[Rfam]
RNA sequence: AGAUGAUGAUGAUUCUAUAUUUGAUAUCAUAGACCAGUUACUAGCUGAAGACAAUCGCAUGCUACAUGAGUCU
Number, nucleotide and partner (000 for none) at each position: 001a073002g072003a071004u000005g000006a000007u000008g000009a000010u000011g000012a000013u000014u000015c000016u000017a000018u000019a000020u000021u000022u000023g000024a000025u000026a000027u000028c000029a000030u000031a000032g000033a000034c000035c000036a000037g000038u000039u000040a000041c000042u064043a063044g062045c061046u000047g000048a000049a000050g000051a000052c000053a000054a000055u000056c000057g000058c000059a000060u000061g045062c044063u043064a042065c000066a000067u000068g000069a000070g000071u003072c002073u001
RNA: Small nucleolar RNA R43